RNA: Small nucleolar RNA snoR74
Organism: Phtheirospermum japonicum
RNA sequence: AUUAAAGCAGGGAUCUGUUGCCAUUUGUGGGCAGGUCUCUCGUAAACAUCACUGAUAAAACCCUGCAAUAUUAUCGGGUGAACCUAUUAAGUAAUUCCAAUGAUUGAUGGUUCAGUAAACAAUGCUAUAUUU
Numbered sequence: 001a002u003u004a005a006a007g008c009a010g011g012g013a014u015c016u017g018u019u020g021c022c023a024u025u026u027g028u029g030g031g032c033a034g035g036u037c038u039c040u041c042g043u044a045a046a047c048a049u050c051a052c053u054g055a056u057a058a059a060a061c062c063c064u065g066c067a068a069u070a071u072u073a074u075c076g077g078g079u080g081a082a083c084c085u086a087u088u089a090a091g092u093a094a095u096u097c098c099a100a101u102g103a104u105u106g107a108u109g110g111u112u113c114a115g116u117a118a119a120c121a122a123u124g125c126u127a128u129a130u131u132u
Stems, first nucleotide, its partner, number of pairs: 005049001007047001011038002014035004066124002069121001071119002079114006